[Rfam]
A member of the RNA family "2dG-II purine riboswitch aptamer" from Coprothermobacter proteolyticus, 71 nucleotides long.
Lineage of the source: Bacteria > Coprothermobacterota > Coprothermobacteraceae > Coprothermobacter > Coprothermobacter proteolyticus.
A search with the family's covariance model found it, with a score of 61 bits.
Rfam links the family to the GO term purine nucleobase biosynthetic process.
Clan: Purine riboswitches.

RNA sequence: CUCCUGUGUAAUCCCCCAAAUAGGGUGGGGGAGUUUCUACCUGCAGACCGUAAAUCUGCAGACCACAGGGG
Numbered sequence: 001c002u003c004c005u006g007u008g009u010a011a012u013c014c015c016c017c018a019a020a021u022a023g024g025g026u027g028g029g030g031g032a033g034u035u036u037c038u039a040c041c042u043g044c045a046g047a048c049c050g051u052a053a054a055u056c057u058g059c060a061g062a063c064c065a066c067a068g069g070g071g
Stems, first nucleotide, its partner, number of pairs: 001071008012032007042060006